[Rfam]
The family of this 83-nucleotide sequence from Actinomyces sp. 2119 is "tRNA". Rfam 15.1 lists 5,335,975 matches to the family in 14,413 species. Taxonomically the source falls in Actinomyces (Bacteria, Actinomycetota, Actinomycetales, Actinomycetaceae). Gene Ontology term of the family: triplet codon-amino acid adaptor activity. A search with the family's covariance model found it, with a score of 55 bits. Rfam's curators write: Transfer RNA (tRNA) molecules are approximately 80 nucleotides in length. It is annotated as a transfer RNA.
RNA sequence: GCCCCCGUGGUGGAACCGGUAGACACCGCGACCUUAAAAGUCGCUGCCCACCGGGCGUGCGGGUUCGAGUCCCGCCGGGGGCA
Numbered sequence: 001g002c003c004c005c006c007g008u009g010g011u012g013g014a015a016c017c018g019g020u021a022g023a024c025a026c027c028g029c030g031a032c033c034u035u036a037a038a039a040g041u042c043g044c045u046g047c048c049c050a051c052c053g054g055g056c057g058u059g060c061g062g063g064u065u066c067g068a069g070u071c072c073c074g075c076c077g078g079g080g081g082c083a
Base pairs, nucleotide, nucleotide: 001082002081003080004079005078006077007076010026011025012024028044029043030042031041032040059075060074061073062072063071
Dot-bracket structure: (((((((..(((...........))).(((((.......)))))..............(((((.......)))))))))))).